[Rfam]
RNA: TPP riboswitch aptamer (THI element)
Organism: Comamonas antarctica
Nucleotides: 123
Stems, first nucleotide, its partner, number of pairs: 007110004011073004016067001017028004035066005079104003085098004
Number, partner (000 for none) and nucleotide at each position: 001000g002000c003000c004000c005000c006000a007110g008109c009108u010107c011073c012072g013071g014070g015000g016067u017028g018027u019026g020025c021000u022000u023000a024000u025020g026019c027018g028017c029000u030000g031000a032000g033000a034000u035066g036065c037064c038063a039062g040000a041000c042000g043000g044000u045000c046000u047000g048000u049000g050000u051000g052000a053000a054000c055000a056000g057000g058000c059000c060000g061000g062039c063038u064037g065036g066035c067016g068000a069000a070014c071013c072012c073011g074000a075000c076000g077000a078000a079104c080103u081102u082000g083000a084000u085098c086097c087096g088095g089000u090000u091000c092000a093000u094000a095088c096087c097086g098085g099000c100000g101000g102081a103080a104079g105000a106000a107010g108009a109008g110007c111000g112000a113000g114000a115000c116000c117000c118000u119000g120000a121000a122000g123000c